[Rfam]
Nucleotides: 106
Base pairs, nucleotide, nucleotide: 001106003104004103005102006101007100008099039078040077041076042075046071047070048069050068051067052066
Number, partner (000 for none) and nucleotide at each position: 001106g002000c003104g004103a005102g006101u007100g008099c009000a010000g011000u012000g013000a014000u015000g016000a017000u018000g019000c020000a021000a022000u023000a024000g025000u026000a027000u028000g029000u030000g031000g032000a033000c034000u035000a036000g037000a038000g039078u040077u041076u042075c043000u044000g045000a046071u047070a048069c049000c050068u051067g052066g053000u054000g055000g056000c057000u058000u059000u060000c061000a062000c063000u064000c065000c066052c067051c068050a069048g070047u071046g072000g073000u074000u075042g076041a077040a078039g079000a080000c081000u082000a083000a084000c085000c086000c087000u088000u089000g090000g091000c092000u093000g094000u095000c096000u097000g098000a099008g100007c101006a102005c103004u104003c105000u106001c
About this RNA
This 106-nucleotide RNA from Rhodamnia argentea belongs to the Rfam family "Small nucleolar RNA Z157/R69/R10". The organism belongs to Rhodamnia, within Eukaryota. It is annotated as a C/D-box small nucleolar RNA. It scores 76 bits against the family's covariance model. Rfam links the family to the GO terms RNA processing and nucleolus. The family is grouped with related families in Rfam's "SNORD52 clan".